Small nucleolar RNA SNORD127: an 86-nucleotide RNA from Alectura lathami. On this family, see Yang et al., Nucleic Acids Res 2006: "snoSeeker: an advanced computational package for screening of guide and orphan snoRNA genes in the human genome". Taxonomically the source falls in Alectura (Eukaryota, Teleostomi, Sarcopterygii, Aves). It is annotated as a C/D-box small nucleolar RNA. Its family is annotated with RNA processing and nucleolus in the Gene Ontology. It scores 73 bits against the family's covariance model.
RNA sequence: UGGCAACAAUGAUGACAGGUAUCGUAACUGUAUGCACUGGUUUGCUGCCACCUGGAGACAACAGUCCCUCUAAACUGACGUUGCCA
Numbered sequence: 001u002g003g004c005a006a007c008a009a010u011g012a013u014g015a016c017a018g019g020u021a022u023c024g025u026a027a028c029u030g031u032a033u034g035c036a037c038u039g040g041u042u043u044g045c046u047g048c049c050a051c052c053u054g055g056a057g058a059c060a061a062c063a064g065u066c067c068c069u070c071u072a073a074a075c076u077g078a079c080g081u082u083g084c085c086a
Stems, first nucleotide, its partner, number of pairs: 001086007